A member of the RNA family "Eukaryotic small subunit ribosomal RNA" from Otus sunia, 154 nucleotides of a longer RNA.
[Rfam]
RNA sequence: CAGCUCGUUGCUACUACUGAUUGAAUGGUUUAGUGAGGUUCUCAGAUCAGCUCCAGUCCUCCUGGCGUGUUGAGCAGACAGUGAAACUUGGCUAUCUAGAGGAAGUAAAAGUAGUAACGAGGUUUUCAUAGGUGAACCUGCAGAAGUAUCAUUA
Numbered sequence: 001c002a003g004c005u006c007g008u009u010g011c012u013a014c015u016a017c018u019g020a021u022u023g024a025a026u027g028g029u030u031u032a033g034u035g036a037g038g039u040u041c042u043c044a045g046a047u048c049a050g051c052u053c054c055a056g057u058c059c060u061c062c063u064g065g066c067g068u069g070u071u072g073a074g075c076a077g078a079c080a081g082u083g084a085a086a087c088u089u090g091g092c093u094a095u096c097u098a099g100a101g102g103a104a105g106u107a108a109a110a111g112u113a114g115u116a117a118c119g120a121g122g123u124u125u126u127c128a129u130a131g132g133u134g135a136a137c138c139u140g141c142a143g144a145a146g147u148a149u150c151a152u153u154a
Base pairs, nucleotide, nucleotide: 001121003118006114009111012107013106014105015104017102018101021098023097025095026094027093028092029091030090032088033087034086038082039081040080042078043077045075047073048072049071050070051069053065054064055063056062123146124145125144126143129140130139131138132137
Dot-bracket structure: (.(..(..(..((((.((..(.(.((((((.(((...(((.((.(.(((((.((((.....))))...))))).).)).)))...))).)))))).))..)).))))...)..)...)..).((((..((((....))))..))))........
Taxonomically the source falls in Otus (Eukaryota, Euteleostomi, Amniota, Coelurosauria). The family's consensus secondary structure is taken from published work.